The record is a 126-nucleotide RNA from Halomonas sp. 1513, which matches "Ribosomal S15 leader" in Rfam. Rfam describes the family as follows. The E. coli Ribosomal S15 gene 5' UTR can form two alternative structures. One that is a series of three hairpins, The other includes a pseudoknot. This structure causes translational regulation of the S15 protein. The alignment of this family contains only the final two hairpins which are conserved in other species, and also includes the complete region that forms the alternate structures. A reference for the family is Benard et al. (1996), "Pseudoknot and translational control in the expression of the S15 ribosomal protein", Biochimie. A search with the family's covariance model found it, with a score of 52 bits.

[Rfam]
RNA sequence: CGUGGAGACUGCAAAUAUGCGUGGUCUUCGACAUUCAUCACUUAGGCAUAUUGCUUACUGGAGAGACAGAUGGCACUGACCGCUGAAAAGAAGGCCGAGAUCGUCAACGAGUUCGGCCGUGGCGAC
Numbered sequence: 001c002g003u004g005g006a007g008a009c010u011g012c013a014a015a016u017a018u019g020c021g022u023g024g025u026c027u028u029c030g031a032c033a034u035u036c037a038u039c040a041c042u043u044a045g046g047c048a049u050a051u052u053g054c055u056u057a058c059u060g061g062a063g064a065g066a067c068a069g070a071u072g073g074c075a076c077u078g079a080c081c082g083c084u085g086a087a088a089a090g091a092a093g094g095c096c097g098a099g100a101u102c103g104u105c106a107a108c109g110a111g112u113u114c115g116g117c118c119g120u121g122g123c124g125a126c
Stems, first nucleotide, its partner, number of pairs: 007026006049079001060077002063074001
Dot-bracket structure: ......((((((........))))))......................(..........((.(..........).)).)...............................................